[Rfam]
RNA sequence: AGCGCCAGAAGCUUGGCGAUGUAGGGGAUCAGCGGCAGGUUCAGGAUCAGGAGGACGAUGUUGCCCAGGUACAUGGACACGAUGACCGACCAGAACACGUCCGGCGCUUCCUGGAACAGGCGCGGCCC
Numbered sequence: 001a002g003c004g005c006c007a008g009a010a011g012c013u014u015g016g017c018g019a020u021g022u023a024g025g026g027g028a029u030c031a032g033c034g035g036c037a038g039g040u041u042c043a044g045g046a047u048c049a050g051g052a053g054g055a056c057g058a059u060g061u062u063g064c065c066c067a068g069g070u071a072c073a074u075g076g077a078c079a080c081g082a083u084g085a086c087c088g089a090c091c092a093g094a095a096c097a098c099g100u101c102c103g104g105c106g107c108u109u110c111c112u113g114g115a116a117c118a119g120g121c122g123c124g125g126c127c128c
Base pairs, nucleotide, nucleotide: 003018004017005016006015007014008013026128027127029125030124033122034121036119043109045107048104050102051101052100054098057096061093062092063091066088068086072084073083074082
Rfam assigns this 128-nucleotide RNA sequence from Caenispirillum salinarum to the family "Ruegeria cis8 sRNA". By type it is a small RNA. The source organism's lineage runs through Bacteria, Pseudomonadati, Novispirillaceae, Caenispirillum and Caenispirillum salinarum. The base pairs follow the family's consensus structure, which was predicted with RNAfold.